[Rfam]
RNA sequence: GUGGGUACACUUAGAGCCCCGUACGGCUCGUGUUAAUAGUGCUGUCUUUGGCCGGGCAGCAUGGUUAGGACAAGC
Numbered sequence: 001g002u003g004g005g006u007a008c009a010c011u012u013a014g015a016g017c018c019c020c021g022u023a024c025g026g027c028u029c030g031u032g033u034u035a036a037u038a039g040u041g042c043u044g045u046c047u048u049u050g051g052c053c054g055g056g057c058a059g060c061a062u063g064g065u066u067a068g069g070a071c072a073a074g075c
Base pairs, nucleotide, nucleotide: 001020003019004018005017006016033068034067035066036065037064039062040061041060042059043058044057045056046055047054

The family of this 75-nucleotide RNA sequence is "L13-Bacteroidia ribosomal protein leader". The sequence is in the family's curated seed alignment. It is annotated as a cis-regulatory leader.